[Rfam]
RNA sequence: GAAAGGAAGGGAGCAAUAACCAACCUCUUGUUCGAUCAAGAGAGCUGGUAUUGCUCCUUCAC
Numbered sequence: 001g002a003a004a005g006g007a008a009g010g011g012a013g014c015a016a017u018a019a020c021c022a023a024c025c026u027c028u029u030g031u032u033c034g035a036u037c038a039a040g041a042g043a044g045c046u047g048g049u050a051u052u053g054c055u056c057c058u059u060c061a062c
Stems, first nucleotide, its partner, number of pairs: 008059011025042006

The family of this 62-nucleotide sequence from Dionaea muscipula is "Plastid-psbA-4 3UTR RNA". The family's consensus secondary structure was predicted with LocARNA. The family's RNA type in Rfam is cis-regulatory element. Taxonomically the source falls in Dionaea (Eukaryota, Streptophytina, Spermatophyta, Droseraceae). Rfam describes the family as follows. Plastid psbA-4 is a non-coding RNA (ncRNA) present in plastids. It was identified in inverted repeat sequences in the 3 prime untranslate region (3UTR) of photosystem II quinone-binding protein (psbA).